[Rfam]
RNA: Glycine riboswitch aptamer
Organism: Treponema sp. Marseille-Q3903
RNA sequence: AUGCAAUUCUCUGGAGAGUUCUCACAUUCCUGUGGGACGCCGAAGGGUUAAGGGAAGAUGUUCAUAUUAUAUGAAAGCUUCCCGAUAUCUCAGGCAUAAGGGACGGAGCUAAAGAA
Numbered sequence: 001a002u003g004c005a006a007u008u009c010u011c012u013g014g015a016g017a018g019u020u021c022u023c024a025c026a027u028u029c030c031u032g033u034g035g036g037a038c039g040c041c042g043a044a045g046g047g048u049u050a051a052g053g054g055a056a057g058a059u060g061u062u063c064a065u066a067u068u069a070u071a072u073g074a075a076a077g078c079u080u081c082c083c084g085a086u087a088u089c090u091c092a093g094g095c096a097u098a099a100g101g102g103a104c105g106g107a108g109c110u111a112a113a114g115a116a
Base pairs, nucleotide, nucleotide: 009108010107011106012105013104020037021036022035023034039095040094041093042091043090046089047088048087052082053081054080055079